[Rfam]
RNA sequence: UCACCACUCCAACGGCUUCCUGGCGGGGUGGGAACACAUCAAUGGAGCA
Numbered sequence: 001u002c003a004c005c006a007c008u009c010c011a012a013c014g015g016c017u018u019c020c021u022g023g024c025g026g027g028g029u030g031g032g033a034a035c036a037c038a039u040c041a042a043u044g045g046a047g048c049a
Stems, first nucleotide, its partner, number of pairs: 004031007013022002015048003019045002
RNA: SAM/SAH riboswitch aptamer